This 69-nucleotide RNA from Tupaia belangeri belongs to the Rfam family "mir-302 microRNA precursor family".
The match comes from Rfam's covariance-model search (76 bits).
Pairs were carried over by alignment from the consensus structure, which was predicted with RNAalifold.
Its family is annotated with miRNA-mediated post-transcriptional gene silencing and RISC complex in the Gene Ontology.
[Rfam]
RNA sequence: CCACCACUUAAACGUGGGAGUACUUGCUUUAUAACGGGGAAAGUAAGUGCUUCCAUGUUUUGGUGAUGG
Numbered sequence: 001c002c003a004c005c006a007c008u009u010a011a012a013c014g015u016g017g018g019a020g021u022a023c024u025u026g027c028u029u030u031a032u033a034a035c036g037g038g039g040a041a042a043g044u045a046a047g048u049g050c051u052u053c054c055a056u057g058u059u060u061u062g063g064u065g066a067u068g069g
Base pairs, nucleotide, nucleotide: 001069002068003067005065006064007063008062010060011059012058013057014056015055016054017053018052019051020050021049022048023047024046025045026044027043028042